[Rfam]
RNA sequence: CCCCCAUGAGGAAACUUCCCACGUCUGACCCCCCUGGUGGGCCCAGGACCUGUCAAGGUGGAACCCACUGGUGCCUUCAGGGGGGACAAGAGGACAACAAGUCUCGAGGGGACAGUCUGAGGGGG
Dot-bracket structure: ((((....................................................................................................................)))).
Numbered sequence: 001c002c003c004c005c006a007u008g009a010g011g012a013a014a015c016u017u018c019c020c021a022c023g024u025c026u027g028a029c030c031c032c033c034c035u036g037g038u039g040g041g042c043c044c045a046g047g048a049c050c051u052g053u054c055a056a057g058g059u060g061g062a063a064c065c066c067a068c069u070g071g072u073g074c075c076u077u078c079a080g081g082g083g084g085g086a087c088a089a090g091a092g093g094a095c096a097a098c099a100a101g102u103c104u105c106g107a108g109g110g111g112a113c114a115g116u117c118u119g120a121g122g123g124g125g
Stems, first nucleotide, its partner, number of pairs: 001124004
A member of the RNA family "Small nucleolar RNA SNORD22" from Xiphorhynchus elegans, 125 nucleotides long. Rfam 15.1 lists 1,081 matches to the family in 414 species. Gene Ontology terms of the family: RNA processing and nucleolus. The organism belongs to Xiphorhynchus, within Eukaryota. A search with the family's covariance model found it, with a score of 70 bits.